A member of the RNA family "radC RNA" from Xanthomonas citri, 151 nucleotides long. The family has 148 seed sequences and 500 matches in Rfam 15.1. The family's RNA type in Rfam is cis-regulatory element.
[Rfam]
RNA sequence: ACGCUCACCGCAUGCCUGCCGAAAGAUUUCGGCGACAUGCCAGGCAACCUCCGGUCUUCGAGGUUGCGCGCGGCCCGCAAACUGCGUGACCGAACCAGUUCGCUUCGCAUCCUUCGCGCGAACGGCCGCCGGUUUUCCCGGUGGCGGAUGC
Numbered sequence: 001a002c003g004c005u006c007a008c009c010g011c012a013u014g015c016c017u018g019c020c021g022a023a024a025g026a027u028u029u030c031g032g033c034g035a036c037a038u039g040c041c042a043g044g045c046a047a048c049c050u051c052c053g054g055u056c057u058u059c060g061a062g063g064u065u066g067c068g069c070g071c072g073g074c075c076c077g078c079a080a081a082c083u084g085c086g087u088g089a090c091c092g093a094a095c096c097a098g099u100u101c102g103c104u105u106c107g108c109a110u111c112c113u114u115c116g117c118g119c120g121a122a123c124g125g126c127c128g129c130c131g132g133u134u135u136u137c138c139c140g141g142u143g144g145c146g147g148a149u150g151c
Stems, first nucleotide, its partner, number of pairs: 011039004015034001018033006044067006053091004068087006118151003125145008